[Rfam]
RNA sequence: AACUGGCUGUGAAGAUGCAGCCUACUCGUGGCAGGACGAAAAGACCCCAUGGAGCUUUACUGUAGUCUGGCCUUGAGAUUCGGCCGUUUCUGCGCAGGAUAGGUGGGAGCCUAUGAAGCCGGGGCUUUGGUCUCGGUGGAGGCGACGGUGAGAUACCACCCUGAGACGUCUGGAUUUCUAACCCGUUGACGGGGACAGGGCUUGAUGGGCAGUUUGACUGGGGCGGUCGCCUCCCAAAAGGUAACGGAGGCGCCCAAAGGUUCCCUCAGGUGGGACGGAAACCCACCAGAGAGCGCAAGGGUAGAAGGGAGCCUGACUGUGAGGCCUGCAAGCCGAGCAGACGCGAAAGCGGGGCCUAGUGAACCUGUGGUUCUGUGUGGAAGGGCCAUAGAUCAACGGAUAAAAGUUACCCUGGGGAUAACAGGCUGAUGAUUCCCGAGCGUCCAUAGCGGCGGAAUCGUUUGGCACCUCGAUGUCGGCUCGUCACAUCCUGGGGCUGAAGAAGGUCCCAAGGGUUGGGCUGUUCGCCCAUUAAAGUGGCACGCGAGCUGGGUUCAGAACGUCGUGAGACAGUUCGGUCUCUAUCCGUCACGAGCGCA
Numbered sequence: 001a002a003c004u005g006g007c008u009g010u011g012a013a014g015a016u017g018c019a020g021c022c023u024a025c026u027c028g029u030g031g032c033a034g035g036a037c038g039a040a041a042a043g044a045c046c047c048c049a050u051g052g053a054g055c056u057u058u059a060c061u062g063u064a065g066u067c068u069g070g071c072c073u074u075g076a077g078a079u080u081c082g083g084c085c086g087u088u089u090c091u092g093c094g095c096a097g098g099a100u101a102g103g104u105g106g107g108a109g110c111c112u113a114u115g116a117a118g119c120c121g122g123g124g125c126u127u128u129g130g131u132c133u134c135g136g137u138g139g140a141g142g143c144g145a146c147g148g149u150g151a152g153a154u155a156c157c158a159c160c161c162u163g164a165g166a167c168g169u170c171u172g173g174a175u176u177u178c179u180a181a182c183c184c185g186u187u188g189a190c191g192g193g194g195a196c197a198g199g200g201c202u203u204g205a206u207g208g209g210c211a212g213u214u215u216g217a218c219u220g221g222g223g224c225g226g227u228c229g230c231c232u233c234c235c236a237a238a239a240g241g242u243a244a245c246g247g248a249g250g251c252g253c254c255c256a257a258a259g260g261u262u263c264c265c266u267c268a269g270g271u272g273g274g275a276c277g278g279a280a281a282c283c284c285a286c287c288a289g290a291g292a293g294c295g296c297a298a299g300g301g302u303a304g305a306a307g308g309g310a311g312c313c314u315g316a317c318u319g320u321g322a323g324g325c326c327u328g329c330a331a332g333c334c335g336a337g338c339a340g341a342c343g344c345g346a347a348a349g350c351g352g353g354g355c356c357u358a359g360u361g362a363a364c365c366u367g368u369g370g371u372u373c374u375g376u377g378u379g380g381a382a383g384g385g386c387c388a389u390a391g392a393u394c395a396a397c398g399g400a401u402a403a404a405a406g407u408u409a410c411c412c413u414g415g416g417g418a419u420a421a422c423a424g425g426c427u428g429a430u431g432a433u434u435c436c437c438g439a440g441c442g443u444c445c446a447u448a449g450c451g452g453c454g455g456a457a458u459c460g461u462u463u464g465g466c467a468c469c470u471c472g473a474u475g476u477c478g479g480c481u482c483g484u485c486a487c488a489u490c491c492u493g494g495g496g497c498u499g500a501a502g503a504a505g506g507u508c509c510c511a512a513g514g515g516u517u518g519g520g521c522u523g524u525u526c527g528c529c530c531a532u533u534a535a536a537g538u539g540g541c542a543c544g545c546g547a548g549c550u551g552g553g554u555u556c557a558g559a560a561c562g563u564c565g566u567g568a569g570a571c572a573g574u575u576c577g578g579u580c581u582c583u584a585u586c587c588g589u590c591a592c593g594a595g596c597g598c599a
Stems, first nucleotide, its partner, number of pairs: 005022005025595008034587003038582002046416004051412002053408005059213004066205002069202004075178009085168006092161001102160005109143003118137008182193003216228004229251006252397001254354002260312006266292002269287006293302002317340004323334003342351003365391007373384002425466003429463001430460007440450002477552001478550004482544001483541005490515002493510006517531005558576004562571003
Rfam assigns this 599-nucleotide part of an RNA from Meiothermus ruber to the family "Bacterial large subunit ribosomal RNA". Pairs were carried over by alignment from the consensus structure, which is taken from published work.